[Rfam]
RNA: PreQ1 (pre queuosine) riboswitch aptamer
Organism: Planomicrobium sp. CPCC 101110
RNA sequence: AAAAAAGAGGUUCGCAAACUCCCUCUCAAAAAAACUAAGGAGUC
Numbered sequence: 001a002a003a004a005a006a007g008a009g010g011u012u013c014g015c016a017a018a019c020u021c022c023c024u025c026u027c028a029a030a031a032a033a034a035c036u037a038a039g040g041a042g043u044c
Stems, first nucleotide, its partner, number of pairs: 006026005016036001